[Rfam]
A member of the RNA family "Bacterial RNase P class A" from Clostridium sp. 7_2_43FAA, 343 nucleotides long. A search with the family's covariance model found it, with a score of 301 bits.

RNA sequence: CGAGUAAGACAUGCAAUCGCUGCUAGACUAGAUCUAGGAGAGGAAAGUCGGAGCUCCAUAGGGCAGGGUGCUGGAUAACGUCCAGUCAAGGCGACUUGAAGGAAAGUGCAACAGAGAGAUACCGCCUAAAUUUUUAGGUAAGGGUGGAAAGGCGAGGUAAGAGCUCACCAGCAUCAUGGUGACAUGAUGGCUAUGUAAACCCCACCUGGAGCAAGGUCGAAUAGGGAAACAUUUAGGAGUUGCCCGCUCCGUUUCCGGGUGUACCGCUUGAGCUUAUUGGCAACAAUAAGCCUAGAUAGAUGAUUGCUUAAUACAGAACUCCGCUUACGGCUUAUCUCGCAAU
Numbered sequence: 001c002g003a004g005u006a007a008g009a010c011a012u013g014c015a016a017u018c019g020c021u022g023c024u025a026g027a028c029u030a031g032a033u034c035u036a037g038g039a040g041a042g043g044a045a046a047g048u049c050g051g052a053g054c055u056c057c058a059u060a061g062g063g064c065a066g067g068g069u070g071c072u073g074g075a076u077a078a079c080g081u082c083c084a085g086u087c088a089a090g091g092c093g094a095c096u097u098g099a100a101g102g103a104a105a106g107u108g109c110a111a112c113a114g115a116g117a118g119a120u121a122c123c124g125c126c127u128a129a130a131u132u133u134u135u136a137g138g139u140a141a142g143g144g145u146g147g148a149a150a151g152g153c154g155a156g157g158u159a160a161g162a163g164c165u166c167a168c169c170a171g172c173a174u175c176a177u178g179g180u181g182a183c184a185u186g187a188u189g190g191c192u193a194u195g196u197a198a199a200c201c202c203c204a205c206c207u208g209g210a211g212c213a214a215g216g217u218c219g220a221a222u223a224g225g226g227a228a229a230c231a232u233u234u235a236g237g238a239g240u241u242g243c244c245c246g247c248u249c250c251g252u253u254u255c256c257g258g259g260u261g262u263a264c265c266g267c268u269u270g271a272g273c274u275u276a277u278u279g280g281c282a283a284c285a286a287u288a289a290g291c292c293u294a295g296a297u298a299g300a301u302g303a304u305u306g307c308u309u310a311a312u313a314c315a316g317a318a319c320u321c322c323g324c325u326u327a328c329g330g331c332u333u334a335u336c337u338c339g340c341a342a343u
Stems, first nucleotide, its partner, number of pairs: 001339004007333002010330001013307006020040002023037005045326003049323005054211004061245004066207005071085005086100001087098004101202002106200002108196003122143002124139006151169002154166003171191001172189007215265003225256006236250005272291008
The base pairs follow the family's consensus structure, which is taken from published work.